[Rfam]
RNA sequence: UUCUUAUCAAGAGAGAUGGAGGGAAAUGGCCCUUUGAAGUCUCGGCAACAGGUCCAGGAAUUAGAUGGAUACUGUGCCAAUUCCAUCAGGCAUUUGCUUGAAAGAUAAGAG
Number, nucleotide and partner (000 for none) at each position: 001u111002u110003c109004u108005u107006a106007u105008c104009a000010a000011g000012a000013g043014a042015g041016a040017u039018g000019g000020a000021g032022g031023g030024a000025a000026a086027u085028g084029g083030c023031c022032c021033u000034u000035u000036g000037a000038a000039g017040u016041c015042u014043c013044g078045g077046c076047a075048a000049c074050a073051g000052g070053u069054c068055c067056a000057g000058g000059a000060a000061u000062u000063a000064g000065a000066u000067g055068g054069a053070u052071a000072c000073u050074g049075u047076g046077c045078c044079a000080a000081u000082u103083c029084c028085a027086u026087c100088a099089g098090g097091c096092a000093u000094u000095u000096g091097c090098u089099u088100g087101a000102a000103a082104g008105a007106u006107a005108a004109g003110a002111g001
Rfam assigns this 111-nucleotide RNA from Virgibacillus indicus to the family "SAM riboswitch aptamer (S box leader)".
About the family: The SAM riboswitch is found upstream of a number of genes which code for proteins involved in methionine or cysteine biosynthesis in Gram-positive bacteria.